[Rfam]
RNA sequence: AUCCAAGUGCAGCGGCGAUACGCGUAGCAGUGAGGACAUCGUCCGAGCUCGUGUUUUUGCUAGUUGAAAACUACUUAGUUUGACCGCUUCGGUUGGUCCUCGGAUCGGCUGGGAAUUUUUGAAAAACAAACCU
Numbered sequence: 001a002u003c004c005a006a007g008u009g010c011a012g013c014g015g016c017g018a019u020a021c022g023c024g025u026a027g028c029a030g031u032g033a034g035g036a037c038a039u040c041g042u043c044c045g046a047g048c049u050c051g052u053g054u055u056u057u058u059g060c061u062a063g064u065u066g067a068a069a070a071c072u073a074c075u076u077a078g079u080u081u082g083a084c085c086g087c088u089u090c091g092g093u094u095g096g097u098c099c100u101c102g103g104a105u106c107g108g109c110u111g112g113g114a115a116u117u118u119u120u121g122a123a124a125a126a127c128a129a130a131c132c133u
Stems, first nucleotide, its partner, number of pairs: 020054005026049003034044003088113011
Shown here is a 133-nucleotide RNA from Elaphomyces granulatus, a member of the family "U4 spliceosomal RNA".
Rfam 15.1 lists 32,178 matches to the family in 2,547 species.
It is annotated as a spliceosomal small nuclear RNA.